[Rfam]
The family of this 113-nucleotide RNA sequence from Flexivirga aerilata is "SAM (S-adenosyl methionine) riboswitch aptamer".
Gene Ontology terms of the family: S-adenosylmethionine metabolic process and regulation of gene expression.
RNA sequence: GGUGACGAGAGGCAGCGUCAAGCCCUGGCUUGCUGUCCGGCAACCCUCCGCCGCGGUGGGGUGCUCCAGGUGACCACCGGAUGUGCCCGGCUCCGGGCGCAUAAGCGCGAGAA
Numbered sequence: 001g002g003u004g005a006c007g008a009g010a011g012g013c014a015g016c017g018u019c020a021a022g023c024c025c026u027g028g029c030u031u032g033c034u035g036u037c038c039g040g041c042a043a044c045c046c047u048c049c050g051c052c053g054c055g056g057u058g059g060g061g062u063g064c065u066c067c068a069g070g071u072g073a074c075c076a077c078c079g080g081a082u083g084u085g086c087c088c089g090g091c092u093c094c095g096g097g098c099g100c101a102u103a104a105g106c107g108c109g110a111g112a113a
Base pairs, nucleotide, nucleotide: 001078002077003076004075009038011037012036013035014034015033016032021030022029039065040064041063044061045060046059048056049055081102082101083100084099085098086097087096088095089094
The match comes from Rfam's covariance-model search (102 bits). The family's consensus secondary structure is taken from published work. Rfam describes the family as follows. SAM-IV is a mRNA element that regulates gene expression via direct sensing of S-adenosylmethionine (SAM or AdoMet). SAM-IV riboswitches share conserved nucleotide positions with the previously described SAM-I riboswitches sequence analysis and molecular recognition experiments suggest that SAM-I and SAM-IV riboswitches share similar ligand binding sites, but have different scaffolds.